Background: This 76-nucleotide sequence from Prolemur simus belongs to the Rfam family "mir-320 microRNA precursor family". The base pairs follow the family's consensus structure, which was predicted with RNAalifold. On this family, see Berezikov et al., Genome Res 2006: "Many novel mammalian microRNA candidates identified by extensive cloning and RAKE analysis". Gene Ontology terms of the family: long-term synaptic potentiation, miRNA-mediated post-transcriptional gene silencing and negative regulation of gene expression. It scores 71 bits against the family's covariance model.

RNA sequence: CGAGGGAGGGGCCUUCUCUGCCUGGUUCUUCCCAGAGUCAGGAAAAGCUGGGUGGAGAGGGUAAAAAAAAUAAAAA
Numbered sequence: 001c002g003a004g005g006g007a008g009g010g011g012c013c014u015u016c017u018c019u020g021c022c023u024g025g026u027u028c029u030u031c032c033c034a035g036a037g038u039c040a041g042g043a044a045a046a047g048c049u050g051g052g053u054g055g056a057g058a059g060g061g062u063a064a065a066a067a068a069a070a071u072a073a074a075a076a
Base pairs, nucleotide, nucleotide: 014059015058016057017056018055021052022051023050024049025048029044030043031042032041